The record is a 131-nucleotide RNA sequence from Pseudoalteromonas ulvae, which matches "Molybdenum/Tungsten riboswitch aptamer (Moco RNA motif)" in Rfam. The base pairs follow the family's consensus structure, which is taken from published work. The organism belongs to Pseudoalteromonas, within Bacteria.
[Rfam]
RNA sequence: CUGAACAUCAUACGCUGAAGUGUCCCUUCCUAAACCGCAAAAGGCAUGGAAAGUACACCGUGGUUUACCACCGGGUUUGCUCAGAAAUGAGCAGGCCUCCCGAUUUGGAAAGGCAAAAAAUGCUACAAGAU
Numbered sequence: 001c002u003g004a005a006c007a008u009c010a011u012a013c014g015c016u017g018a019a020g021u022g023u024c025c026c027u028u029c030c031u032a033a034a035c036c037g038c039a040a041a042a043g044g045c046a047u048g049g050a051a052a053g054u055a056c057a058c059c060g061u062g063g064u065u066u067a068c069c070a071c072c073g074g075g076u077u078u079g080c081u082c083a084g085a086a087a088u089g090a091g092c093a094g095g096c097c098u099c100c101c102g103a104u105u106u107g108g109a110a111a112g113g114c115a116a117a118a119a120a121u122g123c124u125a126c127a128a129g130a131u
Stems, first nucleotide, its partner, number of pairs: 004124001006122001011117001014114003020058004025053001027051004035044002060071004073098011099108002